[Rfam]
RNA sequence: CGACCCCGUGCGGGAGAGUCCCCGGGAGAGCCGGGGCGCCGAAGGAGCAAACCUCCCCGGAAUCUCUCAGGCACCCUGUACCGCUCGGGUGAG
Numbered sequence: 001c002g003a004c005c006c007c008g009u010g011c012g013g014g015a016g017a018g019u020c021c022c023c024g025g026g027a028g029a030g031c032c033g034g035g036g037c038g039c040c041g042a043a044g045g046a047g048c049a050a051a052c053c054u055c056c057c058c059g060g061a062a063u064c065u066c067u068c069a070g071g072c073a074c075c076c077u078g079u080a081c082c083g084c085u086c087g088g089g090u091g092a093g
Base pairs, nucleotide, nucleotide: 006088007087008086010084011083012082013081020036021035022034023033038072039071040070041068042067045066046065047064052059
Notes: This 93-nucleotide RNA from Nonomuraea dietziae belongs to the Rfam family "Glycine riboswitch aptamer". The pairing is the family consensus, mapped onto this sequence. The source organism's lineage runs through Bacteria, Bacillati, Actinomycetota, Actinomycetes and Nonomuraea.